[Rfam]
RNA: Small nucleolar RNA SNORA40
RNA sequence: AGCACUUUGUGGAUGUCUUCAAUUGGUGGACAAAGGCAUGAAAGACAAGUGCAAAAAUAGAUCCUCUUUUACAACCCAAAACUCACUGUUCAGUGAGUUUUGGUACAGCUAACUCCCAAGAGACU
Numbered sequence: 001a002g003c004a005c006u007u008u009g010u011g012g013a014u015g016u017c018u019u020c021a022a023u024u025g026g027u028g029g030a031c032a033a034a035g036g037c038a039u040g041a042a043a044g045a046c047a048a049g050u051g052c053a054a055a056a057a058u059a060g061a062u063c064c065u066c067u068u069u070u071a072c073a074a075c076c077c078a079a080a081a082c083u084c085a086c087u088g089u090u091c092a093g094u095g096a097g098u099u100u101u102g103g104u105a106c107a108g109c110u111a112a113c114u115c116c117c118a119a120g121a122g123a124c125u
Stems, first nucleotide, its partner, number of pairs: 002052006009046002015037005023028001062123002065120001067118001069112003077102010